[Rfam]
RNA sequence: GGGAUGUGAUGAGUGGUCAAUGCUCGCAAUUAAAGUAUGCGAGAUGGGUGUCCGCCUAGCCUGGUUACGACACAGGGGCACUCCCAAUUUCACCAAUCUGAUCCC
Numbered sequence: 001g002g003g004a005u006g007u008g009a010u011g012a013g014u015g016g017u018c019a020a021u022g023c024u025c026g027c028a029a030u031u032a033a034a035g036u037a038u039g040c041g042a043g044a045u046g047g048g049u050g051u052c053c054g055c056c057u058a059g060c061c062u063g064g065u066u067a068c069g070a071c072a073c074a075g076g077g078g079c080a081c082u083c084c085c086a087a088u089u090u091c092a093c094c095a096a097u098c099u100g101a102u103c104c105c
Base pairs, nucleotide, nucleotide: 001105002104003103004102014095015094016093017092023043024042025041026040027039046083047082048081049080050079051077052076062075064073065072
RNA: Small nucleolar RNA Z279/snoR105/snoR108